The record is a 63-nucleotide sequence from Nezara viridula, which matches "mir-2 microRNA precursor family" in Rfam. Pairs were carried over by alignment from the consensus structure, which was predicted with PFOLD.
[Rfam]
RNA sequence: GAGUUCGUCAAAGCGGUUGUGCAAUGCAUUUUAGGCAUAUCACAGCCACUUUGAUGAGCUUCA
Numbered sequence: 001g002a003g004u005u006c007g008u009c010a011a012a013g014c015g016g017u018u019g020u021g022c023a024a025u026g027c028a029u030u031u032u033a034g035g036c037a038u039a040u041c042a043c044a045g046c047c048a049c050u051u052u053g054a055u056g057a058g059c060u061u062c063a
Stems, first nucleotide, its partner, number of pairs: 005057009015047007025039002
It scores 55 bits against the family's covariance model.
The literature on the family includes a 2001 paper in Science by Lee and Ambros, "An extensive class of small RNAs in Caenorhabditis elegans".